RNA sequence: GUCUGGCUAACGUGGCCGCAUGCGGGGGUGCUCCAGGGACUCGGGAGGUGGCGGCCCGUUAGCCGCUGUGUUCCCCGCGUUGGCAGAGAAAUGUCGAGACCGUGUAAAACAGCGGUUCGGCGAGUAACAGACAGCCACCCGACCCCUAGGGAUCCGGCCUUGUCCGACCGGACCACACUCGUUCGCGAGUGUGGAAGUCCCCAGGGGUCGCUUCAU
Numbered sequence: 001g002u003c004u005g006g007c008u009a010a011c012g013u014g015g016c017c018g019c020a021u022g023c024g025g026g027g028g029u030g031c032u033c034c035a036g037g038g039a040c041u042c043g044g045g046a047g048g049u050g051g052c053g054g055c056c057c058g059u060u061a062g063c064c065g066c067u068g069u070g071u072u073c074c075c076c077g078c079g080u081u082g083g084c085a086g087a088g089a090a091a092u093g094u095c096g097a098g099a100c101c102g103u104g105u106a107a108a109a110c111a112g113c114g115g116u117u118c119g120g121c122g123a124g125u126a127a128c129a130g131a132c133a134g135c136c137a138c139c140c141g142a143c144c145c146c147u148a149g150g151g152a153u154c155c156g157g158c159c160u161u162g163u164c165c166g167a168c169c170g171g172a173c174c175a176c177a178c179u180c181g182u183u184c185g186c187g188a189g190u191g192u193g194g195a196a197g198u199c200c201c202c203a204g205g206g207g208u209c210g211c212u213u214c215a216u
Stems, first nucleotide, its partner, number of pairs: 014056006057122004061117003065113004071107002140210008149201004154171004159166001

Rfam assigns this 216-nucleotide sequence from Actinoplanes campanulatus to the family "Actinobacteria sRNA Ms_IGR-5". NCBI's taxonomy places the organism under Bacteria, Actinomycetota, Actinomycetes, Micromonosporaceae, Actinoplanes. Pairs were carried over by alignment from the consensus structure. By type it is a small RNA.